[Rfam]
Nucleotides: 158
Base pairs, nucleotide, nucleotide: 014114015047016046017045018044019043020042022041023040024039025038026037048084050077051076052075054073055072058069086112087111089108090106091105093103094102132156134154135153137152140149141148142147
Number, partner (000 for none) and nucleotide at each position: 001000a002000u003000a004000c005000u006000u007000a008000c009000c010000u011000g012000a013000u014114g015047g016046g017045g018044a019043g020042a021000c022041a023040c024039c025038a026037c027000g028000g029000u030000c031000a032000g033000g034000a035000a036000g037026g038025u039024g040023g041022u042020u043019u044018u045017c046016c047015c048084a049000g050077g051076g052075c053000u054073c055072a056000u057000a058069c059000a060000u061000u062000g063000c064000a065000c066000u067000c068000u069058g070000g071000c072055u073054g074000u075052g076051c077050c078000a079000a080000c081000c082000c083000c084048u085000g086112u087111c088000a089108u090106u091105u092000u093103c094102u095000u096000a097000a098000a099000u100000g101000u102094g103093g104000g105091a106090a107000a108089g109000u110000a111087g112086a113000a114014u115000a116000a117000a118000u119000a120000a121000u122000u123000u124000g125000u126000g127000g128000c129000u130000g131000u132156g133000a134154g135153g136000a137152a138000c139000u140149g141148u142147g143000u144000c145000c146000c147142u148141g149140c150000u151000c152137u153135c154134c155000c156132c157000u158000a
Rfam assigns this 158-nucleotide sequence from Nannospalax galili to the family "U1 spliceosomal RNA". The family's RNA type in Rfam is spliceosomal small nuclear RNA. The family's consensus secondary structure is taken from published work. The family has 100 seed sequences and 40,184 matches in Rfam 15.1. Taxonomically the source falls in Nannospalax (Eukaryota, Metazoa, Chordata, Euteleostomi). A search with the family's covariance model found it, with a score of 84 bits.